[Rfam]
RNA sequence: AGCUGCGAGCUGGGUGCACAGCGAACUAUUCUUUCGCCUUUUACUAAAGAAUACCGUGUGCCCGCCUCUAAAAGCAGCAUACGCCACUUUUUGGAGGGCUUCUUUUCUCUUCCGAGAGAAGCC
Numbered sequence: 001a002g003c004u005g006c007g008a009g010c011u012g013g014g015u016g017c018a019c020a021g022c023g024a025a026c027u028a029u030u031c032u033u034u035c036g037c038c039u040u041u042u043a044c045u046a047a048a049g050a051a052u053a054c055c056g057u058g059u060g061c062c063c064g065c066c067u068c069u070a071a072a073a074g075c076a077g078c079a080u081a082c083g084c085c086a087c088u089u090u091u092u093g094g095a096g097g098g099c100u101u102c103u104u105u106u107c108u109c110u111u112c113c114g115a116g117a118g119a120a121g122c123c
Base pairs, nucleotide, nucleotide: 003077004076005075006074008067009066011064012063013062014061015060016059017058018057027053028052029051030050031049032048033047034046097123098122099121100120101119102118103117104116105115106114
Rfam assigns this 123-nucleotide sequence from Elaeis guineensis to the family "U5 spliceosomal RNA". Gene Ontology terms of the family: U5 snRNP and spliceosomal tri-snRNP complex assembly. On this family, see Hinz et al., J Biol Chem 1996: "Domain analysis of human U5 RNA. Cap trimethylation, protein binding, and spliceosome assembly". A search with the family's covariance model found it, with a score of 81 bits. Rfam classes the family as a spliceosomal small nuclear RNA. Rfam describes the family as follows. U5 RNA is a component of both types of known spliceosome. The source organism's lineage runs through Eukaryota, Viridiplantae, Mesangiospermae, Cocoseae and Elaeis.